This 135-nucleotide sequence from Lupinus angustifolius belongs to the Rfam family "mir-166 microRNA precursor family". Rfam 15.1 lists 2,599 matches to the family in 229 species. Rfam describes the family as follows. This family represents the plant microRNA (miRNA) precursor mir-166. The literature on the family includes a 2002 paper in Genes Dev by Reinhart et al., "MicroRNAs in plants".

[Rfam]
RNA sequence: CUUGUGGGGAAUGCUGUCCGGUUCAAGGACAUAACACUAUCUUUACAACCUAUGAUAUAUAUAAUUUGCGGAUUGUAUAAUCGAUUUUGUGUUAUGACUUAGUGUUUCCUCGGACCAGGCUUCAUUCCUCUCAAU
Numbered sequence: 001c002u003u004g005u006g007g008g009g010a011a012u013g014c015u016g017u018c019c020g021g022u023u024c025a026a027g028g029a030c031a032u033a034a035c036a037c038u039a040u041c042u043u044u045a046c047a048a049c050c051u052a053u054g055a056u057a058u059a060u061a062u063a064a065u066u067u068g069c070g071g072a073u074u075g076u077a078u079a080a081u082c083g084a085u086u087u088u089g090u091g092u093u094a095u096g097a098c099u100u101a102g103u104g105u106u107u108c109c110u111c112g113g114a115c116c117a118g119g120c121u122u123c124a125u126u127c128c129u130c131u132c133a134a135u
Base pairs, nucleotide, nucleotide: 002134003133004132006130007129008128009127010126011125012124013123016120017119018118020116021115024112026110027109028108029107